[Rfam]
RNA: pemK RNA
Organism: Ruminiclostridium papyrosolvens
RNA sequence: AUAAUGAUACUCCUGCAUAGUUGAGGUUAAGUCCCAAAGUGCAGCCCGCUUGUUAAGGGGGAGGUGGAAUUCCUGUGA
Dot-bracket structure: ...........(((((((....................))))))(((.(((...))).)))(((.......))))...